[Rfam]
RNA: Plastid-psbA-2 3UTR RNA
RNA sequence: AUAUAAGGAGAAAUAAACUCUUUCUUGUUCUCUCAAGAGAGUUUAUUGCUCCUUAAUUUGC
Numbered sequence: 001a002u003a004u005a006a007g008g009a010g011a012a013a014u015a016a017a018c019u020c021u022u023u024c025u026u027g028u029u030c031u032c033u034c035a036a037g038a039g040a041g042u043u044u045a046u047u048g049c050u051c052c053u054u055a056a057u058u059u060g061c
Stems, first nucleotide, its partner, number of pairs: 004055007012047009023038005